[Rfam]
RNA sequence: AUUGCUUGAGGUGGUAAAAUUCGUUGCAACCAUGCGCCCUUUGGGCUAAAAGAGAUGUAGGAGAGGCGACGCCUACCAAGCAAU
Numbered sequence: 001a002u003u004g005c006u007u008g009a010g011g012u013g014g015u016a017a018a019a020u021u022c023g024u025u026g027c028a029a030c031c032a033u034g035c036g037c038c039c040u041u042u043g044g045g046c047u048a049a050a051a052g053a054g055a056u057g058u059a060g061g062a063g064a065g066g067c068g069a070c071g072c073c074u075a076c077c078a079a080g081c082a083a084u
Stems, first nucleotide, its partner, number of pairs: 001084008011033005023070005035052001036046004057076005
RNA: skipping-rope RNA